[Rfam]
Nucleotides: 098
Base pairs, nucleotide, nucleotide: 001098002097003096004095005094006093007092008091010088011087012086013085014084015083016082017081018080019079020078021077023075024074025073026072027071028070
Number, partner (000 for none) and nucleotide at each position: 001098g002097u003096g004095a005094c006093a007092g008091a009000a010088g011087a012086g013085a014084g015083u016082g017081a018080g019079c020078a021077c022000a023075c024074a025073u026072g027071g028070u029000g030000g031000u032000u033000u034000c035000u036000u037000g038000c039000a040000u041000g042000c043000u044000u045000u046000u047000u048000u049000g050000a051000u052000u053000a054000g055000g056000g057000u058000u059000u060000c061000a062000u063000g064000c065000u066000u067000g068000a069000a070028g071027c072026u073025a074024u075023g076000u077021g078020u079019g080018c081017u082016u083015a084014c085013u086012c087011u088010c089000u090000c091008u092007c093006u094005g095004u096003c097002a098001c
The family of this 98-nucleotide RNA sequence is "mir-156 microRNA precursor family".
On this family, see Reinhart et al., Genes Dev 2002: "MicroRNAs in plants".
Rfam's curators write: This family represents the plant microRNA (miRNA) precursor mir-156.